[Rfam]
A member of the RNA family "Small nucleolar RNA SNORD100" from Megalops atlanticus, 84 nucleotides long. A search with the family's covariance model found it, with a score of 76 bits. The base pairs follow the family's consensus structure, which was predicted with RNAalifold. NCBI's taxonomy places the organism under Eukaryota, Metazoa, Deuterostomia, Megalopidae, Megalops.
RNA sequence: UGUAUCUGUGAUGAUAACUUGGCUCCCUCUACUGAAAGCUGGUGAGGAGAACCGCCAUCGUUACCCAAUUCCAACUGAGAUACA
Numbered sequence: 001u002g003u004a005u006c007u008g009u010g011a012u013g014a015u016a017a018c019u020u021g022g023c024u025c026c027c028u029c030u031a032c033u034g035a036a037a038g039c040u041g042g043u044g045a046g047g048a049g050a051a052c053c054g055c056c057a058u059c060g061u062u063a064c065c066c067a068a069u070u071c072c073a074a075c076u077g078a079g080a081u082a083c084a
Stems, first nucleotide, its partner, number of pairs: 001084006